[Rfam]
RNA sequence: AAAGUUUCAUAUGCCACAGCAAUGGAUUGGUUCAUAGCGGUAUGCUUUGCCUUU
Numbered sequence: 001a002a003a004g005u006u007u008c009a010u011a012u013g014c015c016a017c018a019g020c021a022a023u024g025g026a027u028u029g030g031u032u033c034a035u036a037g038c039g040g041u042a043u044g045c046u047u048u049g050c051c052u053u054u
Base pairs, nucleotide, nucleotide: 001054002053003052008049011046013045014044016041017040019038020037022035023034024033025032026031
Rfam assigns this 54-nucleotide sequence from Lepisosteus oculatus to the family "Editing element of GABA-3 exon 9".
The base pairs follow the family's consensus structure, which is taken from published work.
The organism belongs to Lepisosteus, within Eukaryota.
The family's RNA type in Rfam is cis-regulatory element.
For this family Rfam cites "Editing modifies the GABA(A) receptor subunit alpha3" (Ohlson et al., RNA, 2007).